RNA: Mammalian CPEB3 ribozyme
Organism: Crocodylus porosus
RNA sequence: CUGGCUUUAAUAAUGGCCAUAGCAGAAGUGUUCAUGUUGCAACCCUGGUCAGAUUCCAACGAAUCUGCUAAAUUCUAUU
Numbered sequence: 001c002u003g004g005c006u007u008u009a010a011u012a013a014u015g016g017c018c019a020u021a022g023c024a025g026a027a028g029u030g031u032u033c034a035u036g037u038u039g040c041a042a043c044c045c046u047g048g049u050c051a052g053a054u055u056c057c058a059a060c061g062a063a064u065c066u067g068c069u070a071a072a073u074u075c076u077a078u079u
Stems, first nucleotide, its partner, number of pairs: 013046001015044002021079002024076004028040003050067007